Rfam assigns this 114-nucleotide RNA sequence from Amycolatopsis pithecellobii to the family "TPP riboswitch aptamer (THI element)". Gene Ontology term of the family: thiamine pyrophosphate binding. A search with the family's covariance model found it, with a score of 62 bits. The organism belongs to Amycolatopsis, within Bacteria.
[Rfam]
RNA sequence: CACGGUUGCCACGGGAGUCCGGCACCGAGCCGGGCUGAGAGGCGGGCCGCCGGCCCGCGACCGUUCGCACCUGAUCCGGAUCAUGCCGGCGCAGGGAGGCAUCCCCAACUCCUC
Dot-bracket structure: ......((((((((..(((((((.....)))))))......(((((((...)))))))..)))).....((((..((((......))))..))))..)))).............